[Rfam]
RNA sequence: GUGAAUAAAAGGCAAACCUGUUGAAAGACAGGGACGCAAAGCCAAGGGUCUAAGGUCUCAGGACUAUGACAGCCGGUUGCCGCA
Numbered sequence: 001g002u003g004a005a006u007a008a009a010a011g012g013c014a015a016a017c018c019u020g021u022u023g024a025a026a027g028a029c030a031g032g033g034a035c036g037c038a039a040a041g042c043c044a045a046g047g048g049u050c051u052a053a054g055g056u057c058u059c060a061g062g063a064c065u066a067u068g069a070c071a072g073c074c075g076g077u078u079g080c081c082g083c084a
Stems, first nucleotide, its partner, number of pairs: 012037002017032006040078004046074002048070003055064003
Shown here is an 84-nucleotide RNA sequence from Ruminococcus sp. AM42-11, a member of the family "c-di-GMP-I riboswitch aptamer". A search with the family's covariance model found it, with a score of 82 bits. The base pairs follow the family's consensus structure, which is taken from published work.